[Rfam]
RNA: small nucleolar RNA snoR127
RNA sequence: CUGGAGUGAUGAUGCUUAGCCAAAUCAGAUAUGUGCUCCAAGUGGCAUGAACCCUGUUUGAGAAAAUGGGAUUUUGCCUCUUGUUGCAGCGCGUCUUAGACGAUAUCACAGAGAAUGGUGUUUGCCUGACCAGA
Numbered sequence: 001c002u003g004g005a006g007u008g009a010u011g012a013u014g015c016u017u018a019g020c021c022a023a024a025u026c027a028g029a030u031a032u033g034u035g036c037u038c039c040a041a042g043u044g045g046c047a048u049g050a051a052c053c054c055u056g057u058u059u060g061a062g063a064a065a066a067u068g069g070g071a072u073u074u075u076g077c078c079u080c081u082u083g084u085u086g087c088a089g090c091g092c093g094u095c096u097u098a099g100a101c102g103a104u105a106u107c108a109c110a111g112a113g114a115a116u117g118g119u120g121u122u123u124g125c126c127u128g129a130c131c132a133g134a
Stems, first nucleotide, its partner, number of pairs: 001133004